Small nucleolar RNA SNORA69: a 132-nucleotide RNA sequence from Todus mexicanus. Rfam 15.1 lists 808 matches to the family in 584 species. The organism belongs to Todus, within Eukaryota. Rfam describes the family as follows. U69 is a member of the H/ACA class of small nucleolar RNAs (snoRNAs) which act as guides in the the modification of uridines to pseudouridines. Gene Ontology terms of the family: RNA processing and nucleolus.
[Rfam]
RNA sequence: GAAGCAGGCUGCAAUUGCGGCGCUUCAUUCUGUGGGAGCGCUGCCAUUUCCCUGCUGAGAGGAACCCUGUUAGCGCGGUCCUCGGUCUCACCUGUGCAGUGGUGAAACCAUUCGUUCUUAACAUGGACAAGG
Numbered sequence: 001g002a003a004g005c006a007g008g009c010u011g012c013a014a015u016u017g018c019g020g021c022g023c024u025u026c027a028u029u030c031u032g033u034g035g036g037a038g039c040g041c042u043g044c045c046a047u048u049u050c051c052c053u054g055c056u057g058a059g060a061g062g063a064a065c066c067c068u069g070u071u072a073g074c075g076c077g078g079u080c081c082u083c084g085g086u087c088u089c090a091c092c093u094g095u096g097c098a099g100u101g102g103u104g105a106a107a108c109c110a111u112u113c114g115u116u117c118u119u120a121a122c123a124u125g126g127a128c129a130a131g132g
Stems, first nucleotide, its partner, number of pairs: 003056006018043009065126002068123006075116001084109003088105005